[Rfam]
RNA: Small nucleolar RNA R160
Nucleotides: 078
Stems, first nucleotide, its partner, number of pairs: 001078005
Number, partner (000 for none) and nucleotide at each position: 001078a002077g003076c004075g005074a006000u007000a008000u009000g010000a011000g012000g013000a014000g015000a016000c017000u018000g019000a020000a021000a022000c023000a024000u025000c026000u027000g028000a029000a030000u031000a032000u033000u034000u035000u036000u037000c038000u039000u040000g041000u042000g043000g044000a045000u046000a047000c048000c049000a050000c051000a052000u053000a054000a055000g056000g057000u058000c059000u060000u061000c062000a063000a064000a065000g066000u067000u068000c069000u070000c071000u072000g073000a074005u075004c076003g077002c078001u